[Rfam]
RNA sequence: AAUUUAAAAUUUGGGGCCACAGAAGGAGCGUUCAUGUUGCGGUCCAUGUCAGGCUUUUGCCUGCGAAUCCUUCU
Numbered sequence: 001a002a003u004u005u006a007a008a009a010u011u012u013g014g015g016g017c018c019a020c021a022g023a024a025g026g027a028g029c030g031u032u033c034a035u036g037u038u039g040c041g042g043u044c045c046a047u048g049u050c051a052g053g054c055u056u057u058u059g060c061c062u063g064c065g066a067a068u069c070c071u072u073c074u
Stems, first nucleotide, its partner, number of pairs: 014045005021074007028040003050063005
Shown here is a 74-nucleotide RNA from Eptatretus burgeri, a member of the family "Mammalian CPEB3 ribozyme". For this family Rfam cites "Autocatalytic RNA cleavage in the human beta-globin pre-mRNA promotes transcription termination" (Teixeira et al., Nature, 2004). The base pairs follow the family's consensus structure, which is taken from published work. The source organism's lineage runs through Eukaryota, Opisthokonta, Bilateria, Eptatretinae and Eptatretus.